[Rfam]
Nucleotides: 107
Base pairs, nucleotide, nucleotide: 003105005103012095013094014093015092016091017090018089019088020087022085023084024083025082026081027080028079029078030077031076032075033074034073036071037070038069039068040067041066042065043064044063045062046061047060048059050057
Number, partner (000 for none) and nucleotide at each position: 001000g002000u003105a004000u005103a006000a007000c008000a009000c010000u011000a012095u013094u014093u015092u016091g017090c018089u019088a020087u021000u022085u023084u024083u025082g026081g027080c028079u029078a030077a031076u032075a033074a034073c035000a036071c037070a038069a039068u040067g041066a042065c043064a044063u045062g046061u047060g048059a049000a050057a051000a052000a053000a054000u055000u056000a057050u058000c059048u060047u061046a062045c063044a064043u065042g066041u067040c068039a069038u070037u071036g072000c073034g074033u075032u076031a077030u078029u079028g080027g081026c082025c083024g084023g085022g086000g087020a088019u089018a090017g091016c092015a093014a094013a095012a096000a097000g098000u099000g100000u101000u102000a103005u104000c105003u106000c107000c